[Rfam]
RNA sequence: GUGGGCUACGGGGACAUGUGUCCCACCACCUUGGGCGGGAAGAUCGUGGGGACUCUGUGCGCCAUCGCGGGGGUGCUGACCAUCGCGCUGCCCGUGCCCGUCAUCGUCUCGAAC
Number, nucleotide and partner (000 for none) at each position: 001g114002u113003g000004g000005g110006c000007u000008a107009c106010g105011g104012g000013g102014a101015c100016a000017u000018g097019u096020g095021u094022c000023c000024c000025a000026c000027c000028a000029c000030c000031u000032u000033g000034g000035g000036c000037g077038g076039g000040a074041a000042g000043a000044u000045c000046g000047u000048g000049g063050g062051g000052a000053c000054u000055c000056u000057g000058u000059g000060c000061g000062c050063c049064a000065u000066c000067g000068c000069g000070g000071g000072g000073g000074u040075g000076c038077u037078g000079a000080c000081c000082a000083u000084c000085g000086c000087g000088c000089u000090g000091c000092c000093c000094g021095u020096g019097c018098c000099c000100g015101u014102c013103a000104u011105c010106g009107u008108c000109u000110c005111g000112a000113a002114c001
RNA: Potassium channel RNA editing signal
Organism: Eulacestoma nigropectus